[Rfam]
Nucleotides: 199
Stems, first nucleotide, its partner, number of pairs: 007099002015094004026083006038073003049070005102116006118130003146157004162196004173192005
Number, partner (000 for none) and nucleotide at each position: 001000a002000u003000g004000u005000a006000u007099a008098c009000u010000a011000u012000g013000a014000a015094a016093a017092g018091g019000a020000a021000g022000a023000g024000u025000a026083g027082u028081u029080a030079a031078a032000u033000c034000c035000c036000u037000u038073a039072g040071c041000u042000a043000c044000a045000g046000a047000g048000a049070g050069u051068c052067a053066g054000g055000g056000c057000u058000g059000g060000u061000g062000g063000a064000a065000a066053c067052u068051g069050a070049u071040g072039c073038u074000a075000a076000u077000a078031u079030u080029u081028a082027a083026u084000g085000a086000a087000g088000a089000c090000a091018c092017c093016u094015u095000g096000g097000a098008g099007u100000u101000a102116a103115c104114a105113a106112a107111c108000u109000g110000a111107g112106u113105u114104u115103g116102u117000u118130c119129g120128c121000u122000u123000a124000a125000a126000u127000u128120g129119c130118g131000u132000u133000a134000u135000a136000u137000u138000a139000u140000u141000a142000a143000g144000u145000g146157a147156g148155g149154u150000u151000c152000u153000a154149g155148c156147c157146u158000a159000a160000u161000u162196a163195g164194g165193g166000u167000g168000g169000c170000a171000c172000c173192g174191c175190g176189a177188g178000a179000a180000a181000a182000c183000a184000g185000c186000c187000u188177c189176u190175c191174g192173u193165c194164c195163c196162u197000g198000a199000a

Rfam assigns this 199-nucleotide sequence from Schnuerera ultunensis to the family "T-box leader". Lineage of the source: Bacteria > Bacillati > Tissierellales > Schnuerera > Schnuerera ultunensis.